[Rfam]
RNA: MIR5229 microRNA precursor family
Organism: Medicago truncatula
RNA sequence: CUUUUUUUGUUUAGCAGGAAGAGUGACUAUGGAGGCUGACAAAAGGGUUGGUCACGUUAGUCACUCUUCCUGUUAACCAAUUAAAUA
Numbered sequence: 001c002u003u004u005u006u007u008u009g010u011u012u013a014g015c016a017g018g019a020a021g022a023g024u025g026a027c028u029a030u031g032g033a034g035g036c037u038g039a040c041a042a043a044a045g046g047g048u049u050g051g052u053c054a055c056g057u058u059a060g061u062c063a064c065u066c067u068u069c070c071u072g073u074u075a076a077c078c079a080a081u082u083a084a085a086u087a
Stems, first nucleotide, its partner, number of pairs: 002085003007080003011076019032055001034053007